[Rfam]
RNA sequence: CUUCCGCAACCGGGGCGUCCCUGUUGGAGGGGCUGAGAGGGUGCUGCCUAGCGCCGACCCGCCGAACCUGAUCUGGGUCAUGCCAGCGAAGGGAGAAGAAGAUGCCGCACC
Numbered sequence: 001c002u003u004c005c006g007c008a009a010c011c012g013g014g015g016c017g018u019c020c021c022u023g024u025u026g027g028a029g030g031g032g033c034u035g036a037g038a039g040g041g042u043g044c045u046g047c048c049u050a051g052c053g054c055c056g057a058c059c060c061g062c063c064g065a066a067c068c069u070g071a072u073c074u075g076g077g078u079c080a081u082g083c084c085a086g087c088g089a090a091g092g093g094a095g096a097a098g099a100a101g102a103u104g105c106c107g108c109a110c111c
Base pairs, nucleotide, nucleotide: 007098010095011061012060013059014058016056017033018032019031020030021029040055041054042053043052044051067092068091069090073086074085075084076083

This 111-nucleotide RNA sequence from Gaiella occulta belongs to the Rfam family "TPP riboswitch aptamer (THI element)". The organism belongs to Gaiella, within Bacteria. It scores 64 bits against the family's covariance model.